[Rfam]
RNA sequence: UUUGGCUUGGCCUAUUUCUCCAUGCAAGGAGCGUGGGCCAAAGUCGUU
Numbered sequence: 001u002u003u004g005g006c007u008u009g010g011c012c013u014a015u016u017u018c019u020c021c022a023u024g025c026a027a028g029g030a031g032c033g034u035g036g037g038c039c040a041a042a043g044u045c046g047u048u
Base pairs, nucleotide, nucleotide: 006043007042008041010038011037012036013035014034018031019030020029021028

Rfam assigns this 48-nucleotide RNA from Orthohepacivirus hominis to the family "Hepatitis C virus stem-loop SL1412 RNA". From the family's description: HCV_SL1412 is a stem-loop in the coding region of the C (core) gene. The organism belongs to Orthohepacivirus, within Viruses. A reference for the family is Pirakitikulr et al. (2016), "The Coding Region of the HCV Genome Contains a Network of Regulatory RNA Structures", Mol Cell.